RNA sequence: UUUAAAAGCAAAUAAAAUCACACGUACAUCGGCACAUAUACUAGGGUGCCUUUAGUAAGGUUAGUAUCUGGGAUGUACGGAGGAAGAAC
Number, nucleotide and partner (000 for none) at each position: 001u000002u000003u000004a000005a000006a000007a000008g000009c000010a000011a000012a000013u000014a000015a000016a000017a000018u000019c000020a000021c000022a000023c079024g078025u077026a076027c075028a074029u073030c072031g000032g000033c000034a000035c070036a069037u000038a067039u066040a065041c064042u063043a062044g000045g000046g000047u000048g061049c060050c059051u058052u057053u000054a000055g000056u000057a052058a051059g050060g049061u048062u043063a042064g041065u040066a039067u038068c000069u036070g035071g000072g030073a029074u028075g027076u026077a025078c024079g023080g000081a000082g000083g000084a000085a000086g000087a000088a000089c000